Shown here is a 130-nucleotide sequence, a member of the family "Caenorhabditis sRNA ceN93". The family has 4 seed sequences and 10 matches in Rfam 15.1. It is annotated as a small RNA. On this family, see Jia et al., BMC Mol Biol 2007: "Systematic identification of non-coding RNA 2,2,7-trimethylguanosine cap structures in Caenorhabditis elegans".

RNA sequence: GUUCCAUUCAGUAGUCCCGGACGAUGUGUUCUUUUCGUACGGUUUGGACAAUAUGGAGAAAUAGGCAUUGCUCUUUUUGCAGCGAAACUGAAUUUAUUUUUGUUUUGUUAGCCAUAAGUGUAAAACAUUC
Numbered sequence: 001g002u003u004c005c006a007u008u009c010a011g012u013a014g015u016c017c018c019g020g021a022c023g024a025u026g027u028g029u030u031c032u033u034u035u036c037g038u039a040c041g042g043u044u045u046g047g048a049c050a051a052u053a054u055g056g057a058g059a060a061a062u063a064g065g066c067a068u069u070g071c072u073c074u075u076u077u078u079g080c081a082g083c084g085a086a087a088c089u090g091a092a093u094u095u096a097u098u099u100u101u102g103u104u105u106u107g108u109u110a111g112c113c114a115u116a117a118g119u120g121u122a123a124a125a126c127a128u129u130c
Stems, first nucleotide, its partner, number of pairs: 002058006011049002014045001017042003021038003026034001068123004073118003079112002081109008090101003